[Rfam]
RNA sequence: UCGUUAUCAAGAAAGGUGGAGGGACUAGACCCUAUGAAACCUUAGCAACCCUUUCCCGUAAAGAAGGUGCUACAUUCUAUCACGACAAUGUCGUGACAGAUAACAA
Numbered sequence: 001u002c003g004u005u006a007u008c009a010a011g012a013a014a015g016g017u018g019g020a021g022g023g024a025c026u027a028g029a030c031c032c033u034a035u036g037a038a039a040c041c042u043u044a045g046c047a048a049c050c051c052u053u054u055c056c057c058g059u060a061a062a063g064a065a066g067g068u069g070c071u072a073c074a075u076u077c078u079a080u081c082a083c084g085a086c087a088a089u090g091u092c093g094u095g096a097c098a099g100a101u102a103a104c105a106a
Stems, first nucleotide, its partner, number of pairs: 001106001003104006013043005021032003028078001044071004049067002051063004076098001081095006
Background
A member of the RNA family "SAM riboswitch aptamer (S box leader)" from Ulvibacterium marinum, 106 nucleotides long. The SAM riboswitch is found upstream of a number of genes which code for proteins involved in methionine or cysteine biosynthesis in Gram-positive bacteria. The SAM riboswitch acts at the level of transcription termination control. Taxonomically the source falls in Ulvibacterium (Bacteria, Flavobacteriia, Flavobacteriales, Flavobacteriaceae). A search with the family's covariance model found it, with a score of 84 bits.